[Rfam]
Background: Rfam assigns this 52-nucleotide RNA sequence from Synechococcus sp. RSCCF101 to the family "Guanidine-II riboswitch aptamer (mini-ykkC)". Rfam links the family to the GO term regulation of gene expression. NCBI's taxonomy places the organism under Bacteria, Cyanobacteriota, Synechococcales, Synechococcaceae, Synechococcus.
RNA sequence: GCGCCGGGACGACCCGGCGCUCUGAUGCGUCGUCUCUGGCGGGACGACCCGC
Numbered sequence: 001g002c003g004c005c006g007g008g009a010c011g012a013c014c015c016g017g018c019g020c021u022c023u024g025a026u027g028c029g030u031c032g033u034c035u036c037u038g039g040c041g042g043g044a045c046g047a048c049c050c051g052c
Stems, first nucleotide, its partner, number of pairs: 001020008039052005
It scores 45 bits against the family's covariance model.